[Rfam]
RNA: sok antitoxin (CssrC)
RNA sequence: GGGUGCUUUUGGUUAUCAAUCGAAAGCAUGACACAAGUUUUGCAGACGGUAGAUAAACAAAAACCCCGAAAGUAAAUUUUCAUUAACUAACGAGGUUUAAGUGAUGUACCCAACAAUGCAAAUCUUAGCCUCUAUUUUGAUAAGAGGCAAGUAAAAUGCUGAAAAA
Numbered sequence: 001g002g003g004u005g006c007u008u009u010u011g012g013u014u015a016u017c018a019a020u021c022g023a024a025a026g027c028a029u030g031a032c033a034c035a036a037g038u039u040u041u042g043c044a045g046a047c048g049g050u051a052g053a054u055a056a057a058c059a060a061a062a063a064c065c066c067c068g069a070a071a072g073u074a075a076a077u078u079u080u081c082a083u084u085a086a087c088u089a090a091c092g093a094g095g096u097u098u099a100a101g102u103g104a105u106g107u108a109c110c111c112a113a114c115a116a117u118g119c120a121a122a123u124c125u126u127a128g129c130c131u132c133u134a135u136u137u138u139g140a141u142a143a144g145a146g147g148c149a150a151g152u153a154a155a156a157u158g159c160u161g162a163a164a165a166a
Base pairs, nucleotide, nucleotide: 001067002066003065005064007062008061011058013056014055015054016053017052019050020049021048022047026043027042068091072087073086075084076083077082092132093131094130095129096128100125101124105120106119107118108117136158138156141153